This 299-nucleotide RNA from Candidatus Calditenuaceae archaeon HR02 belongs to the Rfam family "Archaeal RNase P". The organism belongs to Candidatus Calditenuaceae, within Archaea. A reference for the family is Frank and Pace (1998), "Ribonuclease P: unity and diversity in a tRNA processing ribozyme", Annu Rev Biochem. Rfam's curators write: Ribonuclease P (RNase P) is a ubiquitous endoribonuclease, found in archaea, bacteria and eukarya as well as chloroplasts and mitochondria. Rfam links the family to the GO terms tRNA processing, multimeric ribonuclease P complex and ribonuclease P activity. Rfam classes the family as a ribozyme.
[Rfam]
RNA sequence: GCGAGCGGCCGGGCGGGCCACGGGGUAGCUCCCGAGGAAGUUCCUCCCCCCAACCGGUGCAGUCAGCCACCGCGAGGUGGGCGGGGAGACCCACGGCAACGCCACAGAAACGAGACCCCUCCACCGCAGAUGAGGUUGACCCGCCAACCAGAGGCGGCGACGAGUGGUGGAGAAUGGAUGAAACGGGCGACCCUGACGGGGAAAGGCGCGCCGGGCCGAUGAGAAGCGCCGGCGAGGCCCGCGGAGAGCCGAGAAGACCAAUCCCGCCUAAAACAGAAGGAGGGCUACGGGCCGCACGC
Numbered sequence: 001g002c003g004a005g006c007g008g009c010c011g012g013g014c015g016g017g018c019c020a021c022g023g024g025g026u027a028g029c030u031c032c033c034g035a036g037g038a039a040g041u042u043c044c045u046c047c048c049c050c051c052a053a054c055c056g057g058u059g060c061a062g063u064c065a066g067c068c069a070c071c072g073c074g075a076g077g078u079g080g081g082c083g084g085g086g087a088g089a090c091c092c093a094c095g096g097c098a099a100c101g102c103c104a105c106a107g108a109a110a111c112g113a114g115a116c117c118c119c120u121c122c123a124c125c126g127c128a129g130a131u132g133a134g135g136u137u138g139a140c141c142c143g144c145c146a147a148c149c150a151g152a153g154g155c156g157g158c159g160a161c162g163a164g165u166g167g168u169g170g171a172g173a174a175u176g177g178a179u180g181a182a183a184c185g186g187g188c189g190a191c192c193c194u195g196a197c198g199g200g201g202a203a204a205g206g207c208g209c210g211c212c213g214g215g216c217c218g219a220u221g222a223g224a225a226g227c228g229c230c231g232g233c234g235a236g237g238c239c240c241g242c243g244g245a246g247a248g249c250c251g252a253g254a255a256g257a258c259c260a261a262u263c264c265c266g267c268c269u270a271a272a273a274c275a276g277a278a279g280g281a282g283g284g285c286u287a288c289g290g291g292c293c294g295c296a297c298g299c
Stems, first nucleotide, its partner, number of pairs: 001299003005295005010289002012268006021034005039286003043283005048201004054231001056229001062197005067080005081094001083092003095192002100189004116177002119172008141157005205250003213240005